[Rfam]
RNA sequence: AGUUAAUGAGCUUGAACAAGCGUAUGUUUUGAAAACAUAAGAUAGAAUUUAAUUUUCUAUUAACUU
Numbered sequence: 001a002g003u004u005a006a007u008g009a010g011c012u013u014g015a016a017c018a019a020g021c022g023u024a025u026g027u028u029u030u031g032a033a034a035a036c037a038u039a040a041g042a043u044a045g046a047a048u049u050u051a052a053u054u055u056u057c058u059a060u061u062a063a064c065u066u
Base pairs, nucleotide, nucleotide: 001065002064003063004062005061006060007059010021011020012019013018023039024038025037026036027035044058045057046056047055